This 118-nucleotide sequence from Nakamurella panacisegetis belongs to the Rfam family "SAM (S-adenosyl methionine) riboswitch aptamer".
RNA sequence: GGUCUUGAGUUCCAGCACACAGCCCCGGCUUGCUGGGCGGCAACCCUCCACUCGCGGUGGGGUGCCCCGGGUGAUGACCUGGCUGUUCGUUGCACCUGACGAAUAGCAAGCGCGGGCC
Dot-bracket structure: ((((....(.((((((....((......)).)))))))(((..(((.((......))..))).))).........))))..((((((((((......))))))))))...........
Numbered sequence: 001g002g003u004c005u006u007g008a009g010u011u012c013c014a015g016c017a018c019a020c021a022g023c024c025c026c027g028g029c030u031u032g033c034u035g036g037g038c039g040g041c042a043a044c045c046c047u048c049c050a051c052u053c054g055c056g057g058u059g060g061g062g063u064g065c066c067c068c069g070g071g072u073g074a075u076g077a078c079c080u081g082g083c084u085g086u087u088c089g090u091u092g093c094a095c096c097u098g099a100c101g102a103a104u105a106g107c108a109a110g111c112g113c114g115g116g117c118c
Stems, first nucleotide, its partner, number of pairs: 001079004009038001011037006021030002039066003044062003048057002082107010
It scores 110 bits against the family's covariance model.